[Rfam]
The record is an 80-nucleotide RNA sequence from Sarcophilus harrisii, which matches "mir-2970 microRNA precursor family" in Rfam. The match comes from Rfam's covariance-model search (86 bits).
RNA sequence: GUCACUACAGACAGUCAGUAGUUGGUCUAGCGUGACGAGGAAUUCUCAGAUCACCUCUUGGCUGUGAGUGGUGGAGAGAG
Numbered sequence: 001g002u003c004a005c006u007a008c009a010g011a012c013a014g015u016c017a018g019u020a021g022u023u024g025g026u027c028u029a030g031c032g033u034g035a036c037g038a039g040g041a042a043u044u045c046u047c048a049g050a051u052c053a054c055c056u057c058u059u060g061g062c063u064g065u066g067a068g069u070g071g072u073g074g075a076g077a078g079a080g
Stems, first nucleotide, its partner, number of pairs: 003073006011065008020056002023053006030046001
Lineage of the source: Eukaryota > Opisthokonta > Tetrapoda > Dasyuromorphia > Sarcophilus.